RNA sequence: AUCCCGUCACAACGGCUUCCUGGCGUGGCGGCGAAACCCAAUGGAGCG
Numbered sequence: 001a002u003c004c005c006g007u008c009a010c011a012a013c014g015g016c017u018u019c020c021u022g023g024c025g026u027g028g029c030g031g032c033g034a035a036a037c038c039c040a041a042u043g044g045a046g047c048g
Stems, first nucleotide, its partner, number of pairs: 004031007013022002015047003019044002

Annotation:
This 48-nucleotide sequence from Pseudoponticoccus marisrubri belongs to the Rfam family "SAM/SAH riboswitch aptamer". Taxonomically the source falls in Pseudoponticoccus (Bacteria, Pseudomonadota, Rhodobacterales, Roseobacteraceae). A reference for the family is Weickhmann et al. (2019), "The structure of the SAM/SAH-binding riboswitch", Nucleic Acids Res. The family's consensus secondary structure is taken from published work.